[Rfam]
A member of the RNA family "Glycine riboswitch aptamer" from Mediterraneibacter gnavus, 115 nucleotides long.
NCBI's taxonomy places the organism under Bacteria, Bacillati, Bacillota, Clostridia, Mediterraneibacter gnavus.
Nucleotides: 115
Stems, first nucleotide, its partner, number of pairs: 009107003013103001020033004035095003038091002042089001044087001048082008
Number, partner (000 for none) and nucleotide at each position: 001000a002000c003000a004000c005000u006000a007000a008000a009107c010106u011105c012000a013103g014000g015000a016000g017000a018000g019000u020033c021032u022031c023030u024000g025000a026000a027000a028000a029000a030023a031022g032021a033020g034000c035095g036094c037093c038091g039090a040000a041000g042089g043000u044087g045000u046000a047000a048082u049081c050080a051079g052078c053077a054076g055075a056000c057000g058000c059000a060000u061000g062000a063000u064000c065000u066000g067000g068000a069000u070000g071000c072000g073000g074000u075055u076054u077053u078052g079051c080050u081049g082048a083000g084000a085000a086000u087044c088000u089042c090039u091038c092000a093037g094036g095035c096000a097000a098000a099000a100000g101000g102000a103013u104000g105011g106010a107009g108000g109000a110000a111000a112000g113000a114000a115000a